[Rfam]
RNA sequence: UCCCUGGUGGUCCAGUGUUUAGGACUUGGCGCUUUCACUGCCAUGGGCCCGGGUUCAAUCCCUGGUCCGGGAA
Numbered sequence: 001u002c003c004c005u006g007g008u009g010g011u012c013c014a015g016u017g018u019u020u021a022g023g024a025c026u027u028g029g030c031g032c033u034u035u036c037a038c039u040g041c042c043a044u045g046g047g048c049c050c051g052g053g054u055u056c057a058a059u060c061c062c063u064g065g066u067c068c069g070g071g072a073a
Stems, first nucleotide, its partner, number of pairs: 001072004006067002010025004027043005049065005
RNA: tRNA